[Rfam]
RNA sequence: CUUUGUGUGUUUUAGGACCCGUUCGUUGUGGCAGUCUCCCUUCCUAGCCACGAGAGAGCAUCUUCCUGUUUAUUGGCAAAGCUGUCACCAUUUAAUUGGUGUCAGAGUCUGGUUUCACAAGUAACAUUC
Numbered sequence: 001c002u003u004u005g006u007g008u009g010u011u012u013u014a015g016g017a018c019c020c021g022u023u024c025g026u027u028g029u030g031g032c033a034g035u036c037u038c039c040c041u042u043c044c045u046a047g048c049c050a051c052g053a054g055a056g057a058g059c060a061u062c063u064u065c066c067u068g069u070u071u072a073u074u075g076g077c078a079a080a081g082c083u084g085u086c087a088c089c090a091u092u093u094a095a096u097u098g099g100u101g102u103c104a105g106a107g108u109c110u111g112g113u114u115u116c117a118c119a120a121g122u123a124a125c126a127u128u129c
Base pairs, nucleotide, nucleotide: 002054003053004052005051006050007049015039016038017037019034021032022031023030067126068125069124070123073120074119075118076116079114082105083104084103087100088099089098090097
Description: Small nucleolar RNA SNORA24: a 129-nucleotide RNA from Nannospalax galili. ACA24 is a member of the H/ACA class of snoRNA that guide the sites of modification of uridines to pseudouridines. The organism belongs to Nannospalax, within Eukaryota. Its family is annotated with nucleolus and RNA processing in the Gene Ontology. The family's RNA type in Rfam is H/ACA-box small nucleolar RNA.